[Rfam]
RNA sequence: GUGUAAUGAUGAAACCCAUGCGUGUCAUCUGACUCUGGACAGCCCUCCUGUGCUGUUGCUCUGGGUGGCGUUCUGCUAGCCUGAGUCUUCAGCACUGAAGGAGUCCAGAGGCAUGAUCAGACAACACUGCUCUGAAUGC
Numbered sequence: 001g002u003g004u005a006a007u008g009a010u011g012a013a014a015c016c017c018a019u020g021c022g023u024g025u026c027a028u029c030u031g032a033c034u035c036u037g038g039a040c041a042g043c044c045c046u047c048c049u050g051u052g053c054u055g056u057u058g059c060u061c062u063g064g065g066u067g068g069c070g071u072u073c074u075g076c077u078a079g080c081c082u083g084a085g086u087c088u089u090c091a092g093c094a095c096u097g098a099a100g101g102a103g104u105c106c107a108g109a110g111g112c113a114u115g116a117u118c119a120g121a122c123a124a125c126a127c128u129g130c131u132c133u134g135a136a137u138g139c
Stems, first nucleotide, its partner, number of pairs: 001139004044101003048097001050095002
Overview
The record is a 139-nucleotide sequence from Collichthys lucidus, which matches "Small nucleolar RNA SNORD10" in Rfam. Rfam links the family to the GO terms RNA processing and nucleolus. It is annotated as a C/D-box small nucleolar RNA. On this family, see Huttenhofer et al., EMBO J 2001: "RNomics: an experimental approach that identifies 201 candidates for novel, small, non-messenger RNAs in mouse".